[Rfam]
RNA sequence: AAGUGUUACAGCUCUUUUAGAAUUGUUCUUGCAGGUUUUCUGAUUUGCACUAGAAAAACCAUA
Number, nucleotide and partner (000 for none) at each position: 001a000002a000003g000004u000005g000006u000007u000008a000009c000010a000011g000012c000013u000014c000015u000016u000017u000018u000019a000020g000021a000022a000023u000024u000025g000026u000027u000028c000029u000030u000031g000032c000033a000034g060035g059036u058037u056038u055039u054040c053041u052042g051043a000044u049045u000046u000047g000048c000049a044050c000051u042052a041053g040054a039055a038056a037057a000058a036059c035060c034061a000062u000063a000